[Rfam]
Shown here is a 532-nucleotide RNA sequence from Drosophila albomicans, a member of the family "Bicoid 3'-UTR regulatory element". The match comes from Rfam's covariance-model search (201 bits). Rfam classes the family as a cis-regulatory element. Its family is annotated with regulation of bicoid mRNA localization in the Gene Ontology. On this family, see Brunel and Ehresmann, Biochimie 2004: "Secondary structure of the 3' UTR of bicoid mRNA". Rfam's curators write: This family represents the core structure of the bicoid 3'-UTR and consists of domains II, III, IV and V which are known to be essential for correct transport and localisation of bicoid mRNA during oocyte and embryo differentiation.

RNA sequence: GUUGCUGCAGACUUCAAUGCAUUUUGUAACGAUUAUGUACAGAAACCUCAUGUUGAAUACGUUCGCUUUGUUCUCAACACUGACUGACUGGAUAUUGCCUAAAAGCCCAUCAAUGCCCACUUAGUCACUGUCGAGACAAAUAUGGGCUUUAGUGAAUGUAUUCCAUAUGAAGUUUCUUAAUAUAAUUCCCAUUUUAAAUGCAAUACUCUUUACAUAACUCGAUCGAAUUGGCAUAGCCUAAAAACUAGGCUGAUCAAAAUGAAAAAUGUUUCUCUUCCUGAUAAUUGCACAUCAAGUUGCUAUUAUCAGUCGAAGAUUGAACUUUUAAACAAUAAUAUUUAUCAGAAUAUUGUUAUACUAAGCUAUGCCAUGGUUUCAUAUGGCAUUUUAACAUUUCUUGCGCAAGAAUUGUUUAAAAAUUGCAUUUAAUAACGUGAAAUCAACUCGAUUCGGUUAUGCAAAAAGUUUUAUAUUUAACUAGUGGAAUUUUAAUUUCUUACCUUGUUUGAAAUGCAUUGAACUCUGUUAAAGU
Numbered sequence: 001g002u003u004g005c006u007g008c009a010g011a012c013u014u015c016a017a018u019g020c021a022u023u024u025u026g027u028a029a030c031g032a033u034u035a036u037g038u039a040c041a042g043a044a045a046c047c048u049c050a051u052g053u054u055g056a057a058u059a060c061g062u063u064c065g066c067u068u069u070g071u072u073c074u075c076a077a078c079a080c081u082g083a084c085u086g087a088c089u090g091g092a093u094a095u096u097g098c099c100u101a102a103a104a105g106c107c108c109a110u111c112a113a114u115g116c117c118c119a120c121u122u123a124g125u126c127a128c129u130g131u132c133g134a135g136a137c138a139a140a141u142a143u144g145g146g147c148u149u150u151a152g153u154g155a156a157u158g159u160a161u162u163c164c165a166u167a168u169g170a171a172g173u174u175u176c177u178u179a180a181u182a183u184a185a186u187u188c189c190c191a192u193u194u195u196a197a198a199u200g201c202a203a204u205a206c207u208c209u210u211u212a213c214a215u216a217a218c219u220c221g222a223u224c225g226a227a228u229u230g231g232c233a234u235a236g237c238c239u240a241a242a243a244a245c246u247a248g249g250c251u252g253a254u255c256a257a258a259a260u261g262a263a264a265a266a267u268g269u270u271u272c273u274c275u276u277c278c279u280g281a282u283a284a285u286u287g288c289a290c291a292u293c294a295a296g297u298u299g300c301u302a303u304u305a306u307c308a309g310u311c312g313a314a315g316a317u318u319g320a321a322c323u324u325u326u327a328a329a330c331a332a333u334a335a336u337a338u339u340u341a342u343c344a345g346a347a348u349a350u351u352g353u354u355a356u357a358c359u360a361a362g363c364u365a366u367g368c369c370a371u372g373g374u375u376u377c378a379u380a381u382g383g384c385a386u387u388u389u390a391a392c393a394u395u396u397c398u399u400g401c402g403c404a405a406g407a408a409u410u411g412u413u414u415a416a417a418a419a420u421u422g423c424a425u426u427u428a429a430u431a432a433c434g435u436g437a438a439a440u441c442a443a444c445u446c447g448a449u450u451c452g453g454u455u456a457u458g459c460a461a462a463a464a465g466u467u468u469u470a471u472a473u474u475u476a477a478c479u480a481g482u483g484g485a486a487u488u489u490u491a492a493u494u495u496c497u498u499a500c501c502u503u504g505u506u507u508g509a510a511a512u513g514c515a516u517u518g519a520a521c522u523c524u525g526u527u528a529a530a531g532u
Stems, first nucleotide, its partner, number of pairs: 001532003007526005013520001015518006024509002028506005045173002048170004053165001056162008070137003074134002077131003081127002084124004091118001093115002096112002198475001205466003209462003213458002217454003223448004229370002232367006239360002246355002256340003264326003268322004273316004278309002281306005373441001376439001377436003386419004391412002393409004

The family's consensus secondary structure is taken from published work.